This 87-nucleotide RNA sequence from Lathyrus oleraceus belongs to the Rfam family "Small nucleolar RNA Z221/R21b". By type it is a C/D-box small nucleolar RNA.
RNA sequence: GGGCUGUGAUGAUUCCUAGAGAUAGUCAUGCACCACUCUGAUUUUCUGUGCUGAUAACUUUCUCAUACCCAUUAUUUUUCUGAGCCC
Numbered sequence: 001g002g003g004c005u006g007u008g009a010u011g012a013u014u015c016c017u018a019g020a021g022a023u024a025g026u027c028a029u030g031c032a033c034c035a036c037u038c039u040g041a042u043u044u045u046c047u048g049u050g051c052u053g054a055u056a057a058c059u060u061u062c063u064c065a066u067a068c069c070c071a072u073u074a075u076u077u078u079u080c081u082g083a084g085c086c087c
Stems, first nucleotide, its partner, number of pairs: 001087004